[Rfam]
RNA sequence: UACGGUUAGUGAUGAUUUUUAAAAUUAAGCAGAUGGGAAUCUCUCUGAAAAAGACUGAAGAUUUUUAAAAACUGAAACAGUG
Numbered sequence: 001u002a003c004g005g006u007u008a009g010u011g012a013u014g015a016u017u018u019u020u021a022a023a024a025u026u027a028a029g030c031a032g033a034u035g036g037g038a039a040u041c042u043c044u045c046u047g048a049a050a051a052a053g054a055c056u057g058a059a060g061a062u063u064u065u066u067a068a069a070a071a072c073u074g075a076a077a078c079a080g081u082g
Base pairs, nucleotide, nucleotide: 001082002081003080005078006077007076
RNA: Small nucleolar RNA SNORD79